Bacterial RNase P class A: a 337-nucleotide RNA sequence from Salegentibacter echinorum. Its family is annotated with tRNA processing, dimeric ribonuclease P complex and ribonuclease P activity in the Gene Ontology. Rfam classes the family as a ribozyme.
RNA sequence: UAAGCAGGCCGCCUUAUCGCUGCUAAUGCAAAUUAGUAGAGGAAAGUCCGGACACCAAAGGGCGACAUAGUGGGUAACGCCCACCGUUUCCCGUUCCGACAAUUAAGGGGAUGGGAUUAGGACCAGUGCAACAGAAAGAAUGUACAGGUAAUGCUGUAGUGAAAUCAGGUAAACUCUAUGUGGUGCAAUGUCACGUAAACCGGUGCCUGCAAACUGCCCGUUUGCUACCGGAGGGUAGGCAGCUAAAGGUUUUUGGUAACAAAAACUUCAGAUAAAUGAUAGGGGCUUUCUAAGAAAUUAGAAAGAACAGAAUCCGGCUUACAGGCCUGCUUUUUAU
Number, nucleotide and partner (000 for none) at each position: 001u000002a332003a331004g330005c329006a328007g327008g326009c325010c324011g322012c284013c283014u282015u281016a280017u279018c278019g000020c039021u038022g037023c036024u035025a034026a033027u032028g000029c000030a000031a000032a027033u026034u025035a024036g023037u022038a021039g020040a000041g000042g000043a000044a320045a319046g318047u000048c317049c316050g315051g314052a313053c185054a184055c183056c182057a000058a000059a000060g219061g218062g217063c216064g000065a181066c180067a179068u178069a177070g084071u083072g082073g081074g080075u000076a000077a000078c000079g000080c074081c073082c072083a071084c070085c120086g118087u000088u000089u000090c000091c000092c000093g000094u000095u000096c000097c000098g000099a000100c000101a000102a000103u000104u000105a000106a000107g000108g000109g000110g000111a000112u000113g000114g000115g000116a000117u000118u086119a000120g085121g176122a175123c000124c000125a000126g174127u173128g170129c169130a000131a000132c000133a000134g000135a000136a000137a000138g000139a000140a000141u000142g000143u158144a157145c156146a155147g154148g000149u000150a000151a000152u000153g000154c147155u146156g145157u144158a143159g000160u000161g000162a000163a000164a000165u000166c000167a000168g000169g129170u128171a000172a000173a127174c126175u122176c121177u069178a068179u067180g066181u065182g056183g055184u054185g053186c000187a000188a000189u241190g240191u239192c238193a000194c000195g000196u000197a000198a000199a000200c231201c230202g229203g228204u227205g000206c000207c000208u000209g000210c224211a223212a222213a221214c220215u000216g063217c062218c061219c060220g214221u213222u212223u211224g210225c000226u000227a204228c203229c202230g201231g200232a000233g000234g000235g000236u000237a000238g192239g191240c190241a189242g000243c000244u000245a000246a000247a000248g267249g266250u265251u264252u263253u262254u261255g260256g000257u000258a000259a000260c255261a254262a253263a252264a251265a250266c249267u248268u000269c000270a000271g000272a000273u000274a000275a000276a000277u000278g018279a017280u016281a015282g014283g013284g012285g000286c000287u000288u000289u000290c000291u000292a000293a000294g000295a000296a000297a000298u000299u000300a000301g000302a000303a000304a000305g000306a000307a000308c000309a000310g000311a000312a000313u052314c051315c050316g049317g048318c046319u045320u044321a000322c011323a000324g010325g009326c008327c007328u006329g005330c004331u003332u002333u000334u000335u000336a000337u000